The record is a 505-nucleotide RNA from Crossiella cryophila, which matches "Saccharopolyspora sRNA 350" in Rfam. The family's consensus secondary structure was predicted with RNAfold.
[Rfam]
RNA sequence: UUGACGGUGAAGUCCCAGAUGCUGCUCGGGUCGGUCAGCGACUCGUCGCCGAAGUGGUCGCCGUUGGCCAGCGUGCCCAGCACGGUCUGGUCGCCGAACUCGCCGAGGCCGAGCUUGUUGACCUUGCCGUGCGCGAUCAGGAACGCCUCGUUCGACUCGUUGCCGAACUCCACGAUCACGUCACCGGGCUGGUACUCCCGCUGCUGGAACCGGUUGGCCAGCGCGACCAGCACGUCCUCGUCGUCGAAGCCACGCAGGAUCGGCAGCUCGGCCAGCUCCGGCGGCACCACCCGGAUGGUCCCGUUGGAGGUGAAGGUGACCCGGCCGUCGCCGACGGUGUAGCUCAACCGCCGGUUGACCCGGAACGCGCCACCCUUGGCCUCCACCCAGGGCAGCACUUUCAGCAGCCACCGGGAGGAAAUCGCCUGCAUCUGCGGGACGGACUUGGUCGUCGUCGCCAGGUUCCGCGCCGCCGCCGUGCCAAGGCUGAGCGGGGCAUGCCCGU
Number, nucleotide and partner (000 for none) at each position: 001u000002u000003g000004a000005c000006g387007g386008u385009g384010a000011a382012g381013u000014c379015c378016c000017a000018g325019a000020u000021g322022c000023u000024g000025c000026u319027c318028g317029g000030g000031u313032c312033g000034g000035u310036c309037a000038g000039c306040g305041a304042c303043u000044c000045g302046u000047c000048g299049c298050c000051g000052a000053a000054g233055u232056g000057g000058u229059c000060g227061c000062c225063g224064u223065u111066g110067g109068c108069c000070a000071g000072c000073g000074u000075g103076c000077c102078c000079a100080g099081c000082a000083c096084g095085g094086u093087c000088u000089g000090g000091u000092c000093g086094c085095c084096g083097a000098a000099c080100u079101c000102g077103c075104c000105g000106a000107g000108g068109c067110c066111g065112a000113g000114c000115u000116u000117g222118u221119u220120g219121a000122c217123c216124u000125u000126g000127c212128c000129g210130u209131g000132c206133g204134c203135g202136a000137u000138c000139a000140g198141g197142a000143a000144c000145g195146c000147c000148u000149c192150g000151u000152u000153c000154g189155a000156c187157u186158c000159g184160u183161u178162g177163c000164c000165g000166a000167a000168c000169u000170c000171c000172a000173c000174g000175a000176u000177c162178a161179c000180g000181u000182c000183a160184c159185c000186g157187g156188g000189c154190u000191g000192g149193u000194a000195c145196u000197c141198c140199c000200g000201c000202u135203g134204c133205u000206g132207g000208a000209a130210c129211c000212g127213g000214u000215u000216g123217g122218c000219c120220a119221g118222c117223g064224c063225g062226a000227c060228c000229a058230g000231c000232a055233c054234g296235u295236c294237c293238u000239c000240g290241u289242c000243g287244u286245c284246g000247a000248a000249g282250c281251c280252a000253c000254g278255c000256a277257g276258g000259a000260u271261c270262g269263g000264c000265a000266g000267c000268u000269c262270g261271g260272c000273c000274a000275g000276c257277u256278c254279c000280g251281g250282c249283g000284g245285c000286a244287c243288c000289a241290c240291c000292c000293g237294g236295a235296u234297g000298g049299u048300c000301c000302c045303g042304u041305u040306g039307g000308a000309g036310g035311u000312g032313a031314a000315g000316g000317u028318g027319a026320c000321c000322c021323g000324g000325c018326c339327g338328u337329c336330g000331c000332c000333g000334a000335c000336g329337g328338u327339g326340u000341a000342g000343c000344u000345c000346a000347a000348c000349c000350g374351c000352c000353g371354g370355u000356u000357g000358a000359c367360c000361c000362g000363g000364a000365a000366c000367g359368c000369g000370c354371c353372a000373c000374c350375c000376u000377u000378g015379g014380c000381c012382u011383c000384c009385a008386c007387c006388c428389a427390g426391g425392g000393c000394a422395g000396c000397a000398c418399u000400u415401u414402c413403a000404g412405c000406a000407g000408c000409c000410a000411c000412c404413g402414g401415g400416a000417g000418g398419a000420a000421a000422u394423c000424g000425c391426c390427u389428g388429c000430a000431u000432c000433u000434g473435c472436g471437g470438g000439a000440c467441g466442g465443a464444c462445u461446u460447g459448g458449u457450c000451g000452u000453c000454g000455u000456c000457g449458c448459c447460a446461g445462g444463u000464u443465c442466c441467g440468c000469g000470c437471c436472g435473c434474c504475g503476c000477c500478g499479u498480g000481c496482c495483a000484a000485g492486g000487c000488u000489g000490a000491g000492c485493g000494g000495g482496g481497c000498a479499u478500g477501c000502c000503c475504g474505u000